[Rfam]
RNA sequence: GUGCUCCGCAAAUGAUGAGAGCUAUGUUGGUAGGGACAUCUGAGAGGGUGAUGAAUGCCAACAUAUCUGAGCUGAGCAU
Numbered sequence: 001g002u003g004c005u006c007c008g009c010a011a012a013u014g015a016u017g018a019g020a021g022c023u024a025u026g027u028u029g030g031u032a033g034g035g036a037c038a039u040c041u042g043a044g045a046g047g048g049u050g051a052u053g054a055a056u057g058c059c060a061a062c063a064u065a066u067c068u069g070a071g072c073u074g075a076g077c078a079u
Stems, first nucleotide, its partner, number of pairs: 001079005
Rfam assigns this 79-nucleotide RNA from Atrichornis clamosus to the family "Small nucleolar RNA SNORD74". On this family, see Galardi et al., Mol Cell Biol 2002: "Purified box C/D snoRNPs are able to reproduce site-specific 2'-O-methylation of target RNA in vitro". Pairs were carried over by alignment from the consensus structure, which was predicted with PFOLD. The match comes from Rfam's covariance-model search (78 bits). Rfam classes the family as a C/D-box small nucleolar RNA.